[Rfam]
RNA sequence: CCACUGUGAGUAUUACAUCAGGUACUGGUUUAAAUACGCUGUUAUCAGUACCGAUGUCAUAUUCGCGGUGU
Dot-bracket structure: .(((((..((((..((((..(((((((((..............))))))))).))))..))))..))))).